[Rfam]
RNA sequence: GGAGUCUGGGUCGGGUGAGGGCCGUUUAUCCCUACCCCUAUUAGAGGGCAUAAGCACUGUGCUUUUGCUUCCUGCCCACUGUUUUUGUCACUGGUUUUCAGCAGGUGGAAAAGCCUCAGCCUACCACUGUCCACCAUAUGGUCUAGACCAAAUAAAAAAAUGUCAGCAGCUGGGCAGCUUACCCAUCACGGGAACCUGUGGUGCUUGCCUGCGCAGCCCUCACGCUCCUCUUGAAGGCCAUGGUUGGCCUGGGACUUCUCCGGAGGUUCCUGAUGCUGCCAUGAAGAGUUGGGCUCUGUGAGCCAUGGGUUUCUUGGGGGCAAGGGAAACACCCUGGCCGCAGGGAGAGAAACGGAGCAGGUCCUUGCACGUGGUGCAUUUCCCUGAACUGUGGGACUGAGCUCAAACACAU
Number, nucleotide and partner (000 for none) at each position: 001g000002g000003a000004g000005u192006c191007u190008g189009g000010g187011u000012c000013g184014g183015g182016u181017g180018a179019g000020g175021g000022c173023c172024g171025u000026u000027u000028a000029u000030c000031c000032c000033u000034a000035c000036c000037c000038c000039u000040a000041u000042u000043a000044g000045a000046g000047g000048g000049c000050a000051u000052a000053a000054g000055c000056a000057c000058u000059g000060u000061g114062c113063u112064u111065u110066u000067g000068c000069u000070u000071c000072c000073u107074g106075c105076c104077c000078a000079c101080u100081g099082u000083u000084u000085u000086u000087g000088u000089c000090a000091c166092u165093g164094g163095u162096u160097u159098u158099c081100a080101g079102c000103a000104g076105g075106u074107g073108g000109a000110a065111a064112a063113g062114c061115c000116u000117c000118a000119g000120c000121c000122u000123a000124c000125c000126a000127c000128u000129g000130u000131c000132c000133a000134c000135c000136a000137u000138a000139u000140g000141g000142u000143c000144u000145a000146g000147a000148c000149c000150a000151a000152a000153u000154a000155a000156a000157a000158a098159a097160a096161u000162g095163u094164c093165a092166g091167c000168a000169g000170c000171u024172g023173g022174g000175c020176a000177g000178c000179u018180u017181a016182c015183c014184c013185a000186u000187c010188a000189c008190g007191g006192g005193a000194a000195c344196c343197u342198g341199u340200g339201g338202u000203g000204c000205u000206u000207g000208c325209c324210u323211g000212c000213g000214c000215a000216g321217c320218c319219c318220u317221c316222a315223c000224g000225c309226u308227c307228c000229u305230c000231u000232u000233g000234a000235a000236g000237g000238c000239c283240a282241u281242g280243g279244u000245u278246g277247g276248c275249c000250u000251g271252g270253g269254a000255c000256u000257u000258c000259u000260c000261c000262g000263g000264a000265g000266g000267u000268u000269c253270c252271u251272g000273a000274u000275g248276c247277u246278g245279c243280c242281a241282u240283g239284a000285a297286g296287a295288g294289u000290u000291g000292g000293g000294c288295u287296c286297u285298g000299u000300g000301a000302g000303c000304c000305a229306u000307g227308g226309g225310u000311u000312u000313c000314u000315u222316g221317g220318g219319g218320g217321c216322a000323a210324g209325g208326g000327a000328a000329a000330c000331a000332c000333c000334c000335u000336g000337g000338c201339c200340g199341c198342a197343g196344g195345g000346a000347g000348a000349g000350a000351a000352a000353c000354g000355g000356a000357g000358c000359a000360g000361g412362u411363c000364c000365u000366u407367g000368c000369a000370c000371g000372u000373g000374g404375u000376g402377c401378a000379u000380u000381u396382c395383c394384c393385u000386g000387a000388a000389c000390u000391g000392u000393g384394g383395g382396a381397c000398u000399g000400a000401g377402c376403u000404c374405a000406a000407a366408c000409a000410c000411a362412u361
Vertebrate telomerase RNA: a 412-nucleotide sequence from Hipposideros armiger.
For this family Rfam cites "Secondary structure of vertebrate telomerase RNA" (Chen et al., Cell, 2000).
Rfam's curators write: Telomerase is a ribonucleoprotein reverse transcriptase that synthesises telomeric DNA. Telomerase RNAs differ greatly in sequence and structure between vertebrates, ciliates and yeasts, but they share a 5' pseudoknot structure close to the template sequence. Vertebrate telomerase RNAs have a 3' H/ACA snoRNA-like domain.
Rfam classes the family as a non-coding RNA gene.
The source organism's lineage runs through Eukaryota, Dipnotetrapodomorpha, Boreoeutheria, Chiroptera and Hipposideros.
It scores 207 bits against the family's covariance model.